Shown here is a 77-nucleotide sequence from Aegilops tauschii, a member of the family "Small nucleolar RNA Z155".
A search with the family's covariance model found it, with a score of 68 bits.
Rfam classes the family as a C/D-box small nucleolar RNA.
Lineage of the source: Eukaryota > Tracheophyta > Magnoliopsida > Triticinae > Aegilops tauschii.
Rfam 15.1 lists 429 matches to the family in 196 species.
[Rfam]
RNA sequence: AGUUGAUGUGAUGAUAAUCUUCAACAGAACCAUAUUUAGUGUUGACCAAAUUACAGACUACAAUUAUCUGAUCAGCU
Dot-bracket structure: ((((((.................................................................))))))